Source information:
Flavo-1 RNA: an 86-nucleotide sequence from Flavobacterium muglaense. It scores 49 bits against the family's covariance model. It is annotated as a small RNA.

RNA sequence: AAAUAGCCCCGAUCGCAGCAAAUUAUCCUUUUUAAAGGUGGAGGCACGGAGCCUUUAAAAAGAUAAUGCGAAGAGCGGGACAACUC
Numbered sequence: 001a002a003a004u005a006g007c008c009c010c011g012a013u014c015g016c017a018g019c020a021a022a023u024u025a026u027c028c029u030u031u032u033u034a035a036a037g038g039u040g041g042a043g044g045c046a047c048g049g050a051g052c053c054u055u056u057a058a059a060a061a062g063a064u065a066a067u068g069c070g071a072a073g074a075g076c077g078g079g080a081c082a083a084c085u086c
Base pairs, nucleotide, nucleotide: 009078010077011076013074014073018069019068025064026063027062031059032058033057034056035055036054037053038052